[Rfam]
RNA sequence: UGAUUACAUGAUUGUAAGUCGCUUUGGAUAAAAGCGUCAGCUAAAUGACAUGUA
Numbered sequence: 001u002g003a004u005u006a007c008a009u010g011a012u013u014g015u016a017a018g019u020c021g022c023u024u025u026g027g028a029u030a031a032a033a034g035c036g037u038c039a040g041c042u043a044a045a046u047g048a049c050a051u052g053u054a
Base pairs, nucleotide, nucleotide: 013043014041015040020036021035022034023033024032025031
The record is a 54-nucleotide sequence from Cyclopterus lumpus, which matches "UnaL2 LINE 3' element" in Rfam. The base pairs follow the family's consensus structure, which is taken from published work.